[Rfam]
RNA sequence: UCCAAUGAUGGCAUGGAAUCUUUGAGACCUGAUCAUUUGUUUUGUUUGAUGACAACUAUAAGCAAAAUUACUGAGGAA
Numbered sequence: 001u002c003c004a005a006u007g008a009u010g011g012c013a014u015g016g017a018a019u020c021u022u023u024g025a026g027a028c029c030u031g032a033u034c035a036u037u038u039g040u041u042u043u044g045u046u047u048g049a050u051g052a053c054a055a056c057u058a059u060a061a062g063c064a065a066a067a068u069u070a071c072u073g074a075g076g077a078a
Stems, first nucleotide, its partner, number of pairs: 001077003032047001034044002

The record is a 78-nucleotide RNA from Durio zibethinus, which matches "Small nucleolar RNA R66" in Rfam.
Taxonomically the source falls in Durio (Eukaryota, Euphyllophyta, Magnoliopsida, Malvales).
Its family is annotated with nucleolus and RNA processing in the Gene Ontology.
About the family: snoR66 is a C/D box small nucleolar RNA, which acts as a methylation guide for 18S ribosomal RNA in plants. snoR66 has been alternatively named snoZ269 in rice.
A search with the family's covariance model found it, with a score of 73 bits.